[Rfam]
RNA sequence: UUCUUAUUAAGAGGAGCAGAGGGACUGGCCCAAUGAUGCUUCAGCAACCCCGCCAUGAGCGGAAGGUGCUAAUUCCAGCAGGACUACGUCCUGGGAGAUAAGAG
Numbered sequence: 001u002u003c004u005u006a007u008u009a010a011g012a013g014g015a016g017c018a019g020a021g022g023g024a025c026u027g028g029c030c031c032a033a034u035g036a037u038g039c040u041u042c043a044g045c046a047a048c049c050c051c052g053c054c055a056u057g058a059g060c061g062g063a064a065g066g067u068g069c070u071a072a073u074u075c076c077a078g079c080a081g082g083a084c085u086a087c088g089u090c091c092u093g094g095g096a097g098a099u100a101a102g103a104g
Stems, first nucleotide, its partner, number of pairs: 001104008013042005021031003025078004043070004048066002050062004074096001079093005

A member of the RNA family "SAM riboswitch aptamer (S box leader)" from Shouchella clausii, 104 nucleotides long. The base pairs follow the family's consensus structure, which is taken from published work. The organism belongs to Shouchella clausii, within Bacteria.